[Rfam]
The family of this 79-nucleotide RNA from Bombyx mori is "mir-2807 microRNA precursor family". A reference for the family is Liu et al. (2010), "MicroRNAs of Bombyx mori identified by Solexa sequencing", BMC Genomics. Pairs were carried over by alignment from the consensus structure, which was predicted with RNAalifold. The organism belongs to Bombyx, within Eukaryota.
RNA sequence: UUAACUCCAAUUUGUAUGGAAUCGUUUGCCUACGUUUGCCGCUAGGGGCGCUGUUCCAAUUGCAUACAAAAUUGGGUUA
Numbered sequence: 001u002u003a004a005c006u007c008c009a010a011u012u013u014g015u016a017u018g019g020a021a022u023c024g025u026u027u028g029c030c031u032a033c034g035u036u037u038g039c040c041g042c043u044a045g046g047g048g049c050g051c052u053g054u055u056c057c058a059a060u061u062g063c064a065u066a067c068a069a070a071a072u073u074g075g076g077u078u079a
Stems, first nucleotide, its partner, number of pairs: 009072001011070006018063001020061003023053002029047003034042002
Source information: Gene Ontology terms of the family: RISC complex and miRNA-mediated post-transcriptional gene silencing.